[Rfam]
RNA sequence: CUGUGGCUUCCACGACCUAAUCCUAACUCCUGCGAGUCCCUGGAGUUAGGAUUAGGUCGUGGAAGCCACAGG
Dot-bracket structure: ((((((((((((((((((((((((((((((...........)))))))))))))))))))))))))))))).